The record is a 101-nucleotide sequence from Debaryomyces hansenii, which matches "Small nucleolar RNA snR60/Z15/Z230/Z193/J17" in Rfam.

RNA sequence: GCAGUGAAAUGAUGAUGAAAAUAUUAAUUGCAUAGUUCAACUGAUAUAUAUGAAGAUAAAAAUACCAUCAAAUAGUCUUUCACCCCUAUCUGAUUCACAAU
Numbered sequence: 001g002c003a004g005u006g007a008a009a010u011g012a013u014g015a016u017g018a019a020a021a022u023a024u025u026a027a028u029u030g031c032a033u034a035g036u037u038c039a040a041c042u043g044a045u046a047u048a049u050a051u052g053a054a055g056a057u058a059a060a061a062a063u064a065c066c067a068u069c070a071a072a073u074a075g076u077c078u079u080u081c082a083c084c085c086c087u088a089u090c091u092g093a094u095u096c097a098c099a100a101u
Stems, first nucleotide, its partner, number of pairs: 004098005

The base pairs follow the family's consensus structure.
The sequence is in the family's curated seed alignment.
The organism belongs to Debaryomyces, within Eukaryota.
The literature on the family includes a 1999 paper in Science by Lowe and Eddy, "A computational screen for methylation guide snoRNAs in yeast".
Rfam classes the family as a C/D-box small nucleolar RNA.